[Rfam]
RNA: mir-132 microRNA precursor family
Organism: Clupea harengus
RNA sequence: CGCCAUGGCUACCGUGGCUUUAGAUUGUUACUGUAGCAACGACACCAUUGGUAACAGUCUACAGCCAUGGUCGCUAAGGGGCA
Numbered sequence: 001c002g003c004c005a006u007g008g009c010u011a012c013c014g015u016g017g018c019u020u021u022a023g024a025u026u027g028u029u030a031c032u033g034u035a036g037c038a039a040c041g042a043c044a045c046c047a048u049u050g051g052u053a054a055c056a057g058u059c060u061a062c063a064g065c066c067a068u069g070g071u072c073g074c075u076a077a078g079g080g081g082c083a
Base pairs, nucleotide, nucleotide: 012070013069015067016066017065018064023059024058025057026056027055028054029053030052031051032050